[Rfam]
RNA sequence: CCAAUAGACCGCUAGGGUUCCGAUCGGCGCCGCCGAUGCCUGGUCCGAGAGCAGUCGACCUUCGCUGAAGGUUACACGGCGGGACAAAAGCCCGGGAGGA
Number, nucleotide and partner (000 for none) at each position: 001c000002c000003a000004a000005u000006a000007g056008a055009c054010c000011g052012c051013u000014a000015g046016g045017g000018u000019u000020c043021c042022g040023a037024u036025c035026g034027g033028c032029g000030c000031c000032g028033c027034c026035g025036a024037u023038g000039c000040c022041u000042g021043g020044u000045c016046c015047g000048a000049g000050a000051g012052c011053a000054g009055u008056c007057g073058a072059c071060c070061u069062u068063c067064g000065c000066u000067g063068a062069a061070g060071g059072u058073u057074a000075c095076a000077c098078g000079g000080c000081g093082g092083g091084a000085c000086a000087a000088a000089a000090g000091c083092c082093c081094g000095g075096g000097a000098g077099g000100a000
The record is a 100-nucleotide RNA from Alloalcanivorax dieselolei, which matches "Guanidine-I riboswitch aptamer" in Rfam.
The match comes from Rfam's covariance-model search (90 bits).
This family represents a conserved RNA structure found upstream of the ykkC and yxkD genes in Bacillus subtilis and related genes in other bacteria. The function of this family is unclear although it has been suggested that it may function to switch on efflux pumps and detoxification systems in response to harmful environmental molecules.
NCBI's taxonomy places the organism under Bacteria, Pseudomonadati, Pseudomonadota, Alloalcanivorax, Alloalcanivorax dieselolei.